[Rfam]
Nucleotides: 053
Stems, first nucleotide, its partner, number of pairs: 020037007
Number, partner (000 for none) and nucleotide at each position: 001000c002000g003000g004000u005000a006000c007000g008000g009000a010000g011000g012000a013000u014000a015000g016000a017000g018000g019000a020037a021036g022035c023034c024033g025032u026031c027000a028000g029000c030000a031026g032025g033024c034023g035022g036021c037020u038000g039000g040000u041000c042000g043000a044000g045000a046000a047000a048000u049000u050000c051000u052000c053000c